This 442-nucleotide RNA from Roseicella aerolata belongs to the Rfam family "Bacterial RNase P class A". By type it is a ribozyme. The organism belongs to Roseicella, within Bacteria. The match comes from Rfam's covariance-model search (238 bits).
RNA sequence: CCAGGUGGCCAGACGACCGCUGGCCCUCGCCGCGAGGCGAGGGCUGGAGGAAAGUCCGGGCUCCACGGGAACACGGUGCCGGCCAACGGCCGGCGGGCAGAGGAAAGCCGGCGGUCCGCCGCCGGCGGCCCAAGGCCCAGGGAAAGUGCCACAGAGAGCAGACCGCCCGCGCGCCGCAAGGUCCGCGGGCAAGGGUGAAAGGGUGCGGUAAGAGCGCACCGCGCCCCCGGCAACGGGGGCGGCAUGGCAAACCCCACCGGGAGCAAGGCCGAAUAGGGGUGGCCGGCGGCGGUCCUUCGGGGCCGUGACGCAAGGGCGUUCCCGCCCCGCCACCCGGGUUGGCCGCGUGAGGCGCGCCGCAAGGCGCGUCCCAGAGGAAUGGUCGUCCCAUCCCCGGGAUUCCCGGGGUGGACAGAACCCGGCUUACCGGCCGCCUGGCGCC
Numbered sequence: 001c002c003a004g005g006u007g008g009c010c011a012g013a014c015g016a017c018c019g020c021u022g023g024c025c026c027u028c029g030c031c032g033c034g035a036g037g038c039g040a041g042g043g044c045u046g047g048a049g050g051a052a053a054g055u056c057c058g059g060g061c062u063c064c065a066c067g068g069g070a071a072c073a074c075g076g077u078g079c080c081g082g083c084c085a086a087c088g089g090c091c092g093g094c095g096g097g098c099a100g101a102g103g104a105a106a107g108c109c110g111g112c113g114g115u116c117c118g119c120c121g122c123c124g125g126c127g128g129c130c131c132a133a134g135g136c137c138c139a140g141g142g143a144a145a146g147u148g149c150c151a152c153a154g155a156g157a158g159c160a161g162a163c164c165g166c167c168c169g170c171g172c173g174c175c176g177c178a179a180g181g182u183c184c185g186c187g188g189g190c191a192a193g194g195g196u197g198a199a200a201g202g203g204u205g206c207g208g209u210a211a212g213a214g215c216g217c218a219c220c221g222c223g224c225c226c227c228c229g230g231c232a233a234c235g236g237g238g239g240c241g242g243c244a245u246g247g248c249a250a251a252c253c254c255c256a257c258c259g260g261g262a263g264c265a266a267g268g269c270c271g272a273a274u275a276g277g278g279g280u281g282g283c284c285g286g287c288g289g290c291g292g293u294c295c296u297u298c299g300g301g302g303c304c305g306u307g308a309c310g311c312a313a314g315g316g317c318g319u320u321c322c323c324g325c326c327c328c329g330c331c332a333c334c335c336g337g338g339u340u341g342g343c344c345g346c347g348u349g350a351g352g353c354g355c356g357c358c359g360c361a362a363g364g365c366g367c368g369u370c371c372c373a374g375a376g377g378a379a380u381g382g383u384c385g386u387c388c389c390a391u392c393c394c395c396g397g398g399a400u401u402c403c404c405g406g407g408g409u410g411g412a413c414a415g416a417a418c419c420c421g422g423c424u425u426a427c428c429g430g431c432c433g434c435c436u437g438g439c440g441c442c
Stems, first nucleotide, its partner, number of pairs: 001438010012387007020047011052425003056422005061263004069322001071320001074259005079093005094140001095138004141254002146252002148248003163194002165190007173182003202220006221243001222241008267344004277335006314327004351370008